[Rfam]
RNA sequence: CGGUAAUGUCUUCUGACCGGUAUAAACGGAGGCAUUCGGCCAUGCUGUGGGUUAUGUAAUCCUAGACUCAAGUUGUCAAGGGUGUGGUGAAAGGACGGGUUUAAUGCCCU
Numbered sequence: 001c002g003g004u005a006a007u008g009u010c011u012u013c014u015g016a017c018c019g020g021u022a023u024a025a026a027c028g029g030a031g032g033c034a035u036u037c038g039g040c041c042a043u044g045c046u047g048u049g050g051g052u053u054a055u056g057u058a059a060u061c062c063u064a065g066a067c068u069c070a071a072g073u074u075g076u077c078a079a080g081g082g083u084g085u086g087g088u089g090a091a092a093g094g095a096c097g098g099g100u101u102u103a104a105u106g107c108c109c110u
Stems, first nucleotide, its partner, number of pairs: 001019004007034007035093002039088008049062005065077003097109004
Shown here is a 110-nucleotide RNA from Paenibacillus cremeus, a member of the family "epsC RNA".
Rfam 15.1 lists 450 matches to the family in 334 species.
The match comes from Rfam's covariance-model search (78 bits).
NCBI's taxonomy places the organism under Bacteria, Bacillota, Bacilli, Paenibacillaceae, Paenibacillus.